[Rfam]
RNA sequence: AGGGCAUUUUGGUGCAGGUCAUAGCAGAAGCGCUCACAGUGCAGCCUGUCAGAUUCCAGCGAAUAUGUGAUUUCUGCU
Number, nucleotide and partner (000 for none) at each position: 001a000002g000003g000004g000005c000006a000007u000008u000009u000010u000011g000012g000013u000014g000015c000016a000017g046018g045019u044020c000021a000022u000023a078024g077025c076026a075027g074028a073029a072030g042031c041032g040033c000034u000035c000036a000037c000038a000039g000040u032041g031042c030043a000044g019045c018046c017047u000048g000049u000050c067051a066052g000053a064054u063055u062056c061057c000058a000059g000060c000061g056062a055063a054064u053065a000066u051067g050068u000069g000070a000071u000072u029073u028074c027075u026076g025077c024078u023
Shown here is a 78-nucleotide RNA sequence from Alligator mississippiensis, a member of the family "Mammalian CPEB3 ribozyme". Taxonomically the source falls in Alligator (Eukaryota, Vertebrata, Sarcopterygii, Archelosauria). The match comes from Rfam's covariance-model search (43 bits).